About this RNA: The family of this 101-nucleotide sequence from Leifsonia poae is "mraW RNA". Taxonomically the source falls in Leifsonia (Bacteria, Bacillati, Micrococcales, Microbacteriaceae). Rfam classes the family as a cis-regulatory element. The family's consensus secondary structure is taken from published work.
RNA sequence: UCUAGCACCUGGCGCCCGACUCCCAGCCAUUCGCCGCCCUGACACACUUCCCCGGUGCCAGGUCGGAAUGGAUGGGGAUCAGGAUCCAGGAGCUCGACCCC
Numbered sequence: 001u002c003u004a005g006c007a008c009c010u011g012g013c014g015c016c017c018g019a020c021u022c023c024c025a026g027c028c029a030u031u032c033g034c035c036g037c038c039c040u041g042a043c044a045c046a047c048u049u050c051c052c053c054g055g056u057g058c059c060a061g062g063u064c065g066g067a068a069u070g071g072a073u074g075g076g077g078a079u080c081a082g083g084a085u086c087c088a089g090g091a092g093c094u095c096g097a098c099c100c101c
Base pairs, nucleotide, nucleotide: 010088011087012086015083016082018080019079021077022076023075024074025073027071028070029069030068031067034066035065036064038062039061040060041059043057044056045055